mir-571 microRNA precursor family: an 85-nucleotide RNA sequence from Pongo abelii.
RNA sequence: AGUAAGACCAAGUUUGGUGCACCAUUUCCUUGUCUGUAGCCAUGUCCAUGGGCUCUUGAGUUUGCCACCUGGGUGAGGGCCUGCU
Dot-bracket structure: ((((.(.((..((((((((..(.(.(((...((((((.(......).))))))....))).).).)).))))))..)).).))))
The family's consensus secondary structure was predicted with RNAalifold. The family has 4 seed sequences and 202 matches in Rfam 15.1. Rfam links the family to the GO terms RISC complex and miRNA-mediated post-transcriptional gene silencing. The organism belongs to Pongo, within Eukaryota.